[Rfam]
Nucleotides: 132
Stems, first nucleotide, its partner, number of pairs: 003057006018044004023039004068126007076118003088107002091104004
Number, partner (000 for none) and nucleotide at each position: 001000c002000a003057a004056g005055c006054a007053g008052g009000a010000c011000g012000c013000a014000a015000u016000u017000a018044c019043a020042g021041u022000g023039c024038u025037u026036c027000a028000u029000u030000u031000a032000u033000g034000u035000g036026g037025a038024a039023g040000g041021a042020c043019u044018g045000c046000c047000a048000u049000u050000a051000c052008c053007c054006u055005g056004c057003u058000g059000a060000g061000a062000g063000u064000c065000u066000c067000a068126u069125c070124c071123u072122g073121c074120u075000u076118c077117a078116g079000a080000g081000u082000a083000u084000c085000a086000g087000c088107u089106u090000c091104u092103c093102a094101c095000c096000u097000c098000u099000g100000u101094g102093u103092g104091g105000a106089a107088a108000c109000c110000u111000u112000c113000a114000c115000u116078c117077u118076g119000u120074a121073g122072c123071a124070g125069g126068g127000a128000c129000a130000a131000c132000u

The family of this 132-nucleotide RNA from Silurus meridionalis is "Small nucleolar RNA SNORA69".